[Rfam]
RNA sequence: CGGAUCAAGAUAAGGCGUCCCCUACUAGGGUGGCGACCGAAACGUCGUUGGCAGUUCCGGCACCCCGUCACGGGGCAACGACCUCAAUCCGCUGCAUCGCAGCAGCAUCUCA
Numbered sequence: 001c002g003g004a005u006c007a008a009g010a011u012a013a014g015g016c017g018u019c020c021c022c023u024a025c026u027a028g029g030g031u032g033g034c035g036a037c038c039g040a041a042a043c044g045u046c047g048u049u050g051g052c053a054g055u056u057c058c059g060g061c062a063c064c065c066c067g068u069c070a071c072g073g074g075g076c077a078a079c080g081a082c083c084u085c086a087a088u089c090c091g092c093u094g095c096a097u098c099g100c101a102g103c104a105g106c107a108u109c110u111c112a
Stems, first nucleotide, its partner, number of pairs: 014038002016035003045081005063075005091106005